[Rfam]
RNA: mir-33 microRNA precursor family
Organism: Etheostoma spectabile
RNA sequence: CUGUGGUGCAUUGUAGUUGCAUUGCAUGUAAUGCUAACAGUGCAAUGGGUCUGCUUUGCAACACAG
Numbered sequence: 001c002u003g004u005g006g007u008g009c010a011u012u013g014u015a016g017u018u019g020c021a022u023u024g025c026a027u028g029u030a031a032u033g034c035u036a037a038c039a040g041u042g043c044a045a046u047g048g049g050u051c052u053g054c055u056u057u058g059c060a061a062c063a064c065a066g
Stems, first nucleotide, its partner, number of pairs: 001066004006062001007060004013054004021046007